[Rfam]
Rfam assigns this 110-nucleotide sequence from Nocardioides acrostichi to the family "TPP riboswitch aptamer (THI element)". It scores 54 bits against the family's covariance model. The source organism's lineage runs through Bacteria, Actinomycetes, Propionibacteriales, Nocardioidaceae and Nocardioides.
RNA sequence: GACGUCCACCACGGGAGCUCGCGGCAGCGGGCUGAGAGGGAGCUGGGGCCGCUCCGACCGUCGAACCUGAUCCGGGUAAAGCCGGCGAAGGGAGCGGGGAGCGCCAUGCC
Numbered sequence: 001g002a003c004g005u006c007c008a009c010c011a012c013g014g015g016a017g018c019u020c021g022c023g024g025c026a027g028c029g030g031g032c033u034g035a036g037a038g039g040g041a042g043c044u045g046g047g048g049c050c051g052c053u054c055c056g057a058c059c060g061u062c063g064a065a066c067c068u069g070a071u072c073c074g075g076g077u078a079a080a081g082c083c084g085g086c087g088a089a090g091g092g093a094g095c096g097g098g099g100a101g102c103g104c105c106a107u108g109c110c
Stems, first nucleotide, its partner, number of pairs: 006099002009096001011061004017032005039055005066091003072085004